[Rfam]
RNA: Bacterial large signal recognition particle RNA
Organism: Hazenella coriacea
RNA sequence: UCGCGCUAGCUGGGGAGCUGGCGGUGCCCUAUUACCUGCAAUCCGCCUUAGCAGGGGUGAAUUCCUGUCCGAGGCUCAUCGAGUGUGAGGUUUGGGCUGUCUGAUCAGUGUUGAUGGAUUGGGUCCUACGCAACGGGAACUUCUGAACCGUGUCAGGUCCGGAAGGAAGCAGCACUAAGGGAGACCACCCGUGUGCCGUAGGGGUGCCUGGUCUUAGCUGUGAUGACAGUGUCCGCUCAGGCUUGAUGUGUCAAAGUCAGGUGCGCGA
Numbered sequence: 001u002c003g004c005g006c007u008a009g010c011u012g013g014g015g016a017g018c019u020g021g022c023g024g025u026g027c028c029c030u031a032u033u034a035c036c037u038g039c040a041a042u043c044c045g046c047c048u049u050a051g052c053a054g055g056g057g058u059g060a061a062u063u064c065c066u067g068u069c070c071g072a073g074g075c076u077c078a079u080c081g082a083g084u085g086u087g088a089g090g091u092u093u094g095g096g097c098u099g100u101c102u103g104a105u106c107a108g109u110g111u112u113g114a115u116g117g118a119u120u121g122g123g124u125c126c127u128a129c130g131c132a133a134c135g136g137g138a139a140c141u142u143c144u145g146a147a148c149c150g151u152g153u154c155a156g157g158u159c160c161g162g163a164a165g166g167a168a169g170c171a172g173c174a175c176u177a178a179g180g181g182a183g184a185c186c187a188c189c190c191g192u193g194u195g196c197c198g199u200a201g202g203g204g205u206g207c208c209u210g211g212u213c214u215u216a217g218c219u220g221u222g223a224u225g226a227c228a229g230u231g232u233c234c235g236c237u238c239a240g241g242c243u244u245g246a247u248g249u250g251u252c253a254a255a256g257u258c259a260g261g262u263g264c265g266c267g268a
Stems, first nucleotide, its partner, number of pairs: 001268006009058003012030004017025003035055005064261004069256001073252003077248001080245005086239004093235002097229005105223002107219003116214009125202006131193002134191004140183005150175004158167003